[Rfam]
Nucleotides: 075
Stems, first nucleotide, its partner, number of pairs: 011064006019056003023052004028047003
Number, partner (000 for none) and nucleotide at each position: 001000g002000c003000a004000u005000u006000c007000u008000a009000u010000c011064c012063u013062u014061c015060a016059u017000u018000c019056c020055a021054c022000c023052g024051g025050a026049g027000u028047c029046u030045g031000u032000g033000u034000a035000g036000u037000u038000g039000u040000u041000c042000a043000a044000u045030c046029a047028g048000a049026u050025u051024u052023c053000a054021g055020u056019g057000g058000u059016g060015u061014g062013a063012a064011g065000u066000g067000u068000a069000g070000g071000a072000a073000a074000c075000a
Record summary:
mir-205 microRNA precursor family: a 75-nucleotide RNA sequence from Danio rerio. Pairs were carried over by alignment from the consensus structure, which was predicted with RNAalifold. Gene Ontology terms of the family: RISC complex and miRNA-mediated post-transcriptional gene silencing. For this family Rfam cites "Vertebrate microRNA genes" (Lim et al., Science, 2003). It is one of the family's seed sequences.